Shown here is an 85-nucleotide sequence from Alteribacillus bidgolensis, a member of the family "BsrC". The 301 nucleotide sequence from Kouji Nakamura has been trimmed to a highly conserved ~85 nucleotide long core to form this family. The literature on the family includes a 2008 paper in Gene by Saito et al., "Novel small RNA-encoding genes in the intergenic regions of Bacillus subtilis". The organism belongs to Alteribacillus, within Bacteria. By type it is a small RNA. The family's consensus secondary structure was predicted with CMfinder.

RNA sequence: GAUACAUAAAACAACAAAAGCCCUUCCUGCUCUUUCGUCCUUGCGGCUCCGAUGACCGCUCCAGUGUGAUUUGAUCUAAAACUAU
Numbered sequence: 001g002a003u004a005c006a007u008a009a010a011a012c013a014a015c016a017a018a019a020g021c022c023c024u025u026c027c028u029g030c031u032c033u034u035u036c037g038u039c040c041u042u043g044c045g046g047c048u049c050c051g052a053u054g055a056c057c058g059c060u061c062c063a064g065u066g067u068g069a070u071u072u073g074a075u076c077u078a079a080a081a082c083u084a085u
Stems, first nucleotide, its partner, number of pairs: 035069003040064002043059004048054001